[Rfam]
RNA sequence: GUUGCUUCUUCUGAUAAUGGGGGGUACCCGAUUUGAUUUUUUUUUGUUACUCUUUAAUGGGAAGCAUACAGUAAAGGGAAAUUGCCAGUUUUAAACAGCAUGAUGCUGUUGUUUAUCUAUUGCAUCGUGUUACCUGUCUGCUGGUAUAUUU
Numbered sequence: 001g002u003u004g005c006u007u008c009u010u011c012u013g014a015u016a017a018u019g020g021g022g023g024g025u026a027c028c029c030g031a032u033u034u035g036a037u038u039u040u041u042u043u044u045u046g047u048u049a050c051u052c053u054u055u056a057a058u059g060g061g062a063a064g065c066a067u068a069c070a071g072u073a074a075a076g077g078g079a080a081a082u083u084g085c086c087a088g089u090u091u092u093a094a095a096c097a098g099c100a101u102g103a104u105g106c107u108g109u110u111g112u113u114u115a116u117c118u119a120u121u122g123c124a125u126c127g128u129g130u131u132a133c134c135u136g137u138c139u140g141c142u143g144g145u146a147u148a149u150u151u
Stems, first nucleotide, its partner, number of pairs: 003066006021053005026047002084145006097131003101127005
Shown here is a 151-nucleotide sequence from Gossypium hirsutum, a member of the family "small nucleolar RNA snoR137". Rfam classes the family as an H/ACA-box small nucleolar RNA. The match comes from Rfam's covariance-model search (65 bits). The family has 4 seed sequences and 808 matches in Rfam 15.1. A reference for the family is Chen and Wu (2009), "Mining small RNA sequencing data: a new approach to identify small nucleolar RNAs in Arabidopsis", Nucleic Acids Res. Gene Ontology terms of the family: RNA processing and nucleolus.